[Rfam]
RNA sequence: GUUAUUUGAGGACAGAACAGGCAUCUGUCACGCCCUUGUGGUUUGGAAAGAGAUGUGGGAUACGCCACCCCACCAAAUAAC
Numbered sequence: 001g002u003u004a005u006u007u008g009a010g011g012a013c014a015g016a017a018c019a020g021g022c023a024u025c026u027g028u029c030a031c032g033c034c035c036u037u038g039u040g041g042u043u044u045g046g047a048a049a050g051a052g053a054u055g056u057g058g059g060a061u062a063c064g065c066c067a068c069c070c071c072a073c074c075a076a077a078u079a080a081c
Stems, first nucleotide, its partner, number of pairs: 001081008011029005020066003031050001032042003055073005
skipping-rope RNA: an 81-nucleotide sequence from Desulfitobacterium hafniense. Lineage of the source: Bacteria > Bacillota > Clostridia > Eubacteriales > Desulfitobacterium hafniense. The family's RNA type in Rfam is small RNA. It is one of the family's seed sequences.